[Rfam]
RNA sequence: ACACCCCAUGAUGCUCAGGUCCGCCGCAUCUCCUGGGUCCGUGGGGUCGGCCGGCCGGCGCUGGCGUAUAGCGGCCUCCUCGUACCGCUGUCAGCUGCUGGUCGGCCCCCAG
Numbered sequence: 001a002c003a004c005c006c007c008a009u010g011a012u013g014c015u016c017a018g019g020u021c022c023g024c025c026g027c028a029u030c031u032c033c034u035g036g037g038u039c040c041g042u043g044g045g046g047u048c049g050g051c052c053g054g055c056c057g058g059c060g061c062u063g064g065c066g067u068a069u070a071g072c073g074g075c076c077u078c079c080u081c082g083u084a085c086c087g088c089u090g091u092c093a094g095c096u097g098c099u100g101g102u103c104g105g106c107c108c109c110c111a112g
Stems, first nucleotide, its partner, number of pairs: 003047008014037006049107011
RNA: EcpR1
Organism: Aminobacter sp. J15